[Rfam]
Rfam assigns this 150-nucleotide RNA sequence from Cohnella sp. AR92 to the family "c-di-AMP riboswitch aptamer (ydaO/yuaA leader)". Its family is annotated with regulation of gene expression and cyclic-di-AMP binding in the Gene Ontology. Taxonomically the source falls in Cohnella (Bacteria, Bacillati, Bacillota, Paenibacillaceae).
RNA sequence: ACUAAGAUUACGCUUAAUUUCGGGCGACUUGCCUGGAAGCGGGGGAACCAAUCUUAGGGGCGAAUUGCAUCUUGCUUCGGUGAGAGAGCAUAGGGGACCAUCUUACCCGAGUCCGUCAGCUAACCUCGUAAGCAGUAGAUGGGUCAAUCA
Dot-bracket structure: ...........(((...(((((((((...)))))))))((((((....(.......)(((.....(((...................)))..(((..........)))...))).........)))))).))).................
Numbered sequence: 001a002c003u004a005a006g007a008u009u010a011c012g013c014u015u016a017a018u019u020u021c022g023g024g025c026g027a028c029u030u031g032c033c034u035g036g037a038a039g040c041g042g043g044g045g046a047a048c049c050a051a052u053c054u055u056a057g058g059g060g061c062g063a064a065u066u067g068c069a070u071c072u073u074g075c076u077u078c079g080g081u082g083a084g085a086g087a088g089c090a091u092a093g094g095g096g097a098c099c100a101u102c103u104u105a106c107c108c109g110a111g112u113c114c115g116u117c118a119g120c121u122a123a124c125c126u127c128g129u130a131a132g133c134a135g136u137a138g139a140u141g142g143g144u145c146a147a148u149c150a
Stems, first nucleotide, its partner, number of pairs: 012133003018038009039129006049057001058114003066090003093108003